[Rfam]
RNA sequence: CUUCGACACUCUGGAAAGCGUGGCUUCCUGUGGCGGCCACCACCGAAGGGGUAAGCGGAUCUGCACAAGCGCAGUCCGCGAAAGCUCUCAGGUACCGUGACAGAGGGGGUGCC
Numbered sequence: 001c002u003u004c005g006a007c008a009c010u011c012u013g014g015a016a017a018g019c020g021u022g023g024c025u026u027c028c029u030g031u032g033g034c035g036g037c038c039a040c041c042a043c044c045g046a047a048g049g050g051g052u053a054a055g056c057g058g059a060u061c062u063g064c065a066c067a068a069g070c071g072c073a074g075u076c077c078g079c080g081a082a083a084g085c086u087c088u089c090a091g092g093u094a095c096c097g098u099g100a101c102a103g104a105g106g107g108g109g110u111g112c113c
Base pairs, nucleotide, nucleotide: 007107009105010104011103012102013101020040021039022038023037024036025035042093043092044091045089046088049087050086051085055079056078057077058076059075060074
Glycine riboswitch aptamer: a 113-nucleotide RNA sequence from Sphingomonas sp. Leaf17. The organism belongs to Sphingomonas, within Bacteria.